[Rfam]
RNA sequence: AGUUGGAGGGAUUCCUGGCAGAGUGAUUUGGUUUUAUGUAAUAAAAUCACAUUGCCAGGGAUUUCCAACCAGCU
Numbered sequence: 001a002g003u004u005g006g007a008g009g010g011a012u013u014c015c016u017g018g019c020a021g022a023g024u025g026a027u028u029u030g031g032u033u034u035u036a037u038g039u040a041a042u043a044a045a046a047u048c049a050c051a052u053u054g055c056c057a058g059g060g061a062u063u064u065c066c067a068a069c070c071a072g073c074u
Base pairs, nucleotide, nucleotide: 001074002073004071005070006069009066010065011062012061013060014059015058016057017056018055019054020053021052023050024049025048026047027046028045029044

The family of this 74-nucleotide RNA sequence from Lepisosteus oculatus is "mir-23 microRNA precursor family".
Lineage of the source: Eukaryota > Gnathostomata > Holostei > Semionotiformes > Lepisosteus.
Rfam 15.1 lists 1,403 matches to the family in 646 species.
It scores 77 bits against the family's covariance model.
Its family is annotated with gene silencing by miRNA and RISC complex in the Gene Ontology.